[Rfam]
RNA sequence: UUAGCUACUUUAGAUAUGGUUUGUAGACAUGACUGACAUCAUGGAUACAAACAUCAGUAUAAAACUGAUUUUGUAUCUGUGAUGGCUAAAGAAAUUUGAGUUGAUCAAAUUUGGCCACAUAGAUGAAAUAAUCUAAGUGGUCAACAUACCCAUAACUUUUGAGGGCGCCUAUUUAGAUUAUUUCAUCUAAA
Numbered sequence: 001u002u003a004g005c006u007a008c009u010u011u012a013g014a015u016a017u018g019g020u021u022u023g024u025a026g027a028c029a030u031g032a033c034u035g036a037c038a039u040c041a042u043g044g045a046u047a048c049a050a051a052c053a054u055c056a057g058u059a060u061a062a063a064a065c066u067g068a069u070u071u072u073g074u075a076u077c078u079g080u081g082a083u084g085g086c087u088a089a090a091g092a093a094a095u096u097u098g099a100g101u102u103g104a105u106c107a108a109a110u111u112u113g114g115c116c117a118c119a120u121a122g123a124u125g126a127a128a129u130a131a132u133c134u135a136a137g138u139g140g141u142c143a144a145c146a147u148a149c150c151c152a153u154a155a156c157u158u159u160u161g162a163g164g165g166c167g168c169c170u171a172u173u174u175a176g177a178u179u180a181u182u183u184c185a186u187c188u189a190a191a
Stems, first nucleotide, its partner, number of pairs: 001089007011079006019052007028043005055073003059069001093160001098158005113142006120135003